RNA: Mu-gpT-DE RNA
RNA sequence: CCCUGACAGUCACAUGGGGUGACUGACUAACCCAGACAGGAGAUCGACAUG
Numbered sequence: 001c002c003c004u005g006a007c008a009g010u011c012a013c014a015u016g017g018g019g020u021g022a023c024u025g026a027c028u029a030a031c032c033c034a035g036a037c038a039g040g041a042g043a044u045c046g047a048c049a050u051g
Stems, first nucleotide, its partner, number of pairs: 002040004007025005